RNA sequence: UUAAAAAGCAGGCAAACCUUCCGAAAGGGAGGGACGCAAAGCCGUGGGUCUAAGGAUAUAUUAAUCUAAGACUGCCAGGUUACAUUU
Numbered sequence: 001u002u003a004a005a006a007a008g009c010a011g012g013c014a015a016a017c018c019u020u021c022c023g024a025a026a027g028g029g030a031g032g033g034a035c036g037c038a039a040a041g042c043c044g045u046g047g048g049u050c051u052a053a054g055g056a057u058a059u060a061u062u063a064a065u066c067u068a069a070g071a072c073u074g075c076c077a078g079g080u081u082a083c084a085u086u087u
Stems, first nucleotide, its partner, number of pairs: 012037002017032006040081004045077003048072003055066003
This 87-nucleotide RNA sequence from Pelosinus sp. UFO1 belongs to the Rfam family "c-di-GMP-I riboswitch aptamer". GEMM was predicted in a large-scale screen for bacterial structured RNA regulatory elements. It scores 78 bits against the family's covariance model. Rfam 15.1 lists 5,092 matches to the family in 1,772 species.